[Rfam]
A member of the RNA family "skipping-rope RNA", 86 nucleotides long. The family's RNA type in Rfam is small RNA. Rfam's curators put it in the seed alignment.
RNA sequence: UAAAAAUGAGGAUAGUGAAUGUGCCGCUAUCUCCCCUUUUAUAAAAAGGUAUGGAGAAGUGGGAAACGGCAGACCCACCAUUUUUU
Numbered sequence: 001u002a003a004a005a006a007u008g009a010g011g012a013u014a015g016u017g018a019a020u021g022u023g024c025c026g027c028u029a030u031c032u033c034c035c036c037u038u039u040u041a042u043a044a045a046a047a048g049g050u051a052u053g054g055a056g057a058a059g060u061g062g063g064a065a066a067c068g069g070c071a072g073a074c075c076c077a078c079c080a081u082u083u084u085u086u
Base pairs, nucleotide, nucleotide: 002085003084004083005082006081007080008079011031012030013029014028015027022071023070024069025068033054035049036048037047038046039045040044059078060077061076062075063074